Source information
A member of the RNA family "tRNA" from marine gamma proteobacterium HTCC2143, 73 nucleotides long. The organism belongs to Spongiibacteraceae, within Bacteria. Its family is annotated with triplet codon-amino acid adaptor activity in the Gene Ontology.
[Rfam]
RNA sequence: GGGCCGUUAGCUCAGUUGGUAGAGCAGUUGGCUUUUAACCAAUUGGUCGCUGGUUCGAAUCCAGCACGGCCCA
Numbered sequence: 001g002g003g004c005c006g007u008u009a010g011c012u013c014a015g016u017u018g019g020u021a022g023a024g025c026a027g028u029u030g031g032c033u034u035u036u037a038a039c040c041a042a043u044u045g046g047u048c049g050c051u052g053g054u055u056c057g058a059a060u061c062c063a064g065c066a067c068g069g070c071c072c073a
Base pairs, nucleotide, nucleotide: 001072002071003070004069005068006067007066010025011024012023013022027043028042029041030040031039049065050064051063052062053061